The family of this 635-nucleotide sequence is "ROOL RNA". Rfam's curators write: Firmicutes, Fusobacteria (1 example), Tenericutes (1 example). It is annotated as a small RNA.

RNA sequence: AACUUUAAACUAUAUAGCACUGAACCCAGUGUGAGAAAUCGAAAGCCAAGACCAUGGCUCUGGGAUAGGUCUGAAUGAUGUGGCUCAGCUUAAAGGAUACUUUAAGUCAACCACUGACCAUACUAUAUAUCGAAGUGUAUGGACAGCUUCUUCGCUCGAAACAGAGGUGGGAGUAUCAAGGAUCUAGUGCUAGGUACUAUGAGGAUACAGCACAACAUAGGCGUGCCAAUCGUAAUUGAAAGGUGAUGUGAAUAGCAUUACCCUAGAAUCCUAAAACCUGAUGGCGUCGAAAACCAUGCAGUAAGUAGGAAAUUCGAAUCAAGGUGGCAGAACACAAGAAAACGUAUGUAGAAAUGCAUACGAAAUAAAUCGUCAGAAAGUUGGUAUAAGUAGCUAAAGAGUGUUCAGUUCAAACUAGACUGGAAAGAUUCGCAAGAAAUGCGAAUAAUACUAUUUUUGACUGAAUGGUUAGUGAACAUGGCAGGUAUCAAUCCUGUUGCAGCUUGGAUCCCUUCGGGGAUUGGCAAUGAUAGUCGGAGAACGUACAACUCCAGGCUCAGAUCAUUGUUCUGUAUGGCUCAAUCCGUAGUGGUAUUGUAAGUAAGGGGAAGCCCUCUGUGCUGUAUAGUUUAAGG
Numbered sequence: 001a002a003c004u005u006u007a008a009a010c011u012a013u014a015u016a017g018c019a020c021u022g023a024a025c026c027c028a029g030u031g032u033g034a035g036a037a038a039u040c041g042a043a044a045g046c047c048a049a050g051a052c053c054a055u056g057g058c059u060c061u062g063g064g065a066u067a068g069g070u071c072u073g074a075a076u077g078a079u080g081u082g083g084c085u086c087a088g089c090u091u092a093a094a095g096g097a098u099a100c101u102u103u104a105a106g107u108c109a110a111c112c113a114c115u116g117a118c119c120a121u122a123c124u125a126u127a128u129a130u131c132g133a134a135g136u137g138u139a140u141g142g143a144c145a146g147c148u149u150c151u152u153c154g155c156u157c158g159a160a161a162c163a164g165a166g167g168u169g170g171g172a173g174u175a176u177c178a179a180g181g182a183u184c185u186a187g188u189g190c191u192a193g194g195u196a197c198u199a200u201g202a203g204g205a206u207a208c209a210g211c212a213c214a215a216c217a218u219a220g221g222c223g224u225g226c227c228a229a230u231c232g233u234a235a236u237u238g239a240a241a242g243g244u245g246a247u248g249u250g251a252a253u254a255g256c257a258u259u260a261c262c263c264u265a266g267a268a269u270c271c272u273a274a275a276a277c278c279u280g281a282u283g284g285c286g287u288c289g290a291a292a293a294c295c296a297u298g299c300a301g302u303a304a305g306u307a308g309g310a311a312a313u314u315c316g317a318a319u320c321a322a323g324g325u326g327g328c329a330g331a332a333c334a335c336a337a338g339a340a341a342a343c344g345u346a347u348g349u350a351g352a353a354a355u356g357c358a359u360a361c362g363a364a365a366u367a368a369a370u371c372g373u374c375a376g377a378a379a380g381u382u383g384g385u386a387u388a389a390g391u392a393g394c395u396a397a398a399g400a401g402u403g404u405u406c407a408g409u410u411c412a413a414a415c416u417a418g419a420c421u422g423g424a425a426a427g428a429u430u431c432g433c434a435a436g437a438a439a440u441g442c443g444a445a446u447a448a449u450a451c452u453a454u455u456u457u458u459g460a461c462u463g464a465a466u467g468g469u470u471a472g473u474g475a476a477c478a479u480g481g482c483a484g485g486u487a488u489c490a491a492u493c494c495u496g497u498u499g500c501a502g503c504u505u506g507g508a509u510c511c512c513u514u515c516g517g518g519g520a521u522u523g524g525c526a527a528u529g530a531u532a533g534u535c536g537g538a539g540a541a542c543g544u545a546c547a548a549c550u551c552c553a554g555g556c557u558c559a560g561a562u563c564a565u566u567g568u569u570c571u572g573u574a575u576g577g578c579u580c581a582a583u584c585c586g587u588a589g590u591g592g593u594a595u596u597g598u599a600a601g602u603a604a605g606g607g608g609a610a611g612c613c614c615u616c617u618g619u620g621c622u623g624u625a626u627a628g629u630u631u632a633a634g635g
Stems, first nucleotide, its partner, number of pairs: 008631002011628001017622001021618002025064005044059005066186006081113003085109001088107008114146003118142006125136001147173005193616001194596001198592001204585001210579001213383004218376001220374004227327001229325003245259004269310005278301003282296003287317004331405005344361007387478001393473005461560003484495002499573003502521001509519003523570002527566001532562001533557001535554001536552001538550002604615004